Shown here is a 107-nucleotide RNA from Pontibacillus halophilus, a member of the family "SAM riboswitch aptamer (S box leader)".
The base pairs follow the family's consensus structure, which is taken from published work.
Nucleotides: 107
Base pairs, nucleotide, nucleotide: 001107002106003105004104005103006102007101008100013042014041015040016039017038021031022030023029027080028079043074044073045072046071048070049069050066052064053063078099083096084095085094086093087092
Number, partner (000 for none) and nucleotide at each position: 001107u002106u003105c004104u005103u006102a007101u008100c009000c010000a011000g012000a013042g014041a015040g016039g017038u018000g019000g020000a021031g022030g023029g024000a025000c026000u027080g028079g029023c030022c031021c032000u033000u034000u035000g036000a037000a038017a039016c040015c041014u042013c043074g044073g045072c046071a047000a048070c049069g050066g051000a052064u053063c054000c055000g056000u057000u058000u059000a060000a061000u062000c063053g064052g065000a066050c067000a068000c069049c070048g071046u072045g073044c074043c075000a076000a077000u078099u079028c080027c081000u082000u083096c084095a085094a086093g087092c088000u089000a090000c091000g092087g093086c094085u095084u096083g097000a098000a099078a100008g101007a102006u103005g104004a105003g106002a107001a

Background:
NCBI's taxonomy places the organism under Bacteria, Bacilli, Caryophanales, Bacillaceae, Pontibacillus halophilus. From the family's description: The SAM riboswitch is found upstream of a number of genes which code for proteins involved in methionine or cysteine biosynthesis in Gram-positive bacteria. The match comes from Rfam's covariance-model search (95 bits).